[Rfam]
RNA sequence: UAGUCCAUGAGGGUGCGUGCGGAGGGCUUGAAGGCAAACUCCGGAACAGACGGCAUAACCAAGUUGGCUGGCGAGAUCGGAUAACCCUGCAAAAAAAGGGAACAUCCUAUACCACCGUUGAUCUCGGAAGUUAAGAGGACUGGAUUCGGGGGAAAGUCGAUGAC
Number, nucleotide and partner (000 for none) at each position: 001u000002a000003g014004u013005c012006c011007a000008u000009g000010a000011g006012g005013g004014u003015g000016c000017g000018u000019g000020c000021g000022g000023a000024g000025g000026g000027c000028u163029u162030g161031a000032a000033g000034g157035c156036a000037a000038a000039c151040u150041c149042c148043g147044g146045a000046a000047c142048a141049g140050a000051c000052g000053g000054c000055a000056u000057a000058a000059c138060c137061a000062a000063g000064u000065u000066g000067g131068c130069u129070g000071g000072c126073g125074a124075g123076a122077u121078c000079g107080g106081a105082u104083a000084a000085c100086c099087c098088u097089g000090c000091a000092a000093a000094a000095a000096a000097a088098g087099g086100g085101a000102a000103c000104a082105u081106c080107c079108u000109a000110u000111a000112c000113c000114a000115c000116c000117g000118u000119u000120g000121a077122u076123c075124u074125c073126g072127g000128a000129a069130g068131u067132u000133a000134a000135g000136a000137g060138g059139a000140c049141u048142g047143g000144a000145u000146u044147c043148g042149g041150g040151g039152g000153a000154a000155a000156g035157u034158c000159g000160a000161u030162g029163a028164c000

A member of the RNA family "Group II catalytic intron D1-D4-3" from Cohnella luojiensis, 164 nucleotides long. The source organism's lineage runs through Bacteria, Bacillati, Bacilli, Caryophanales and Cohnella. The pairing is the family consensus, mapped onto this sequence. From the family's description: Group II introns are found in rRNA, tRNA and mRNA of organelles in fungi, plants and protists, and also in mRNA in bacteria. For this family Rfam cites "The ins and outs of group II introns" (Bonen and Vogel, Trends Genet, 2001).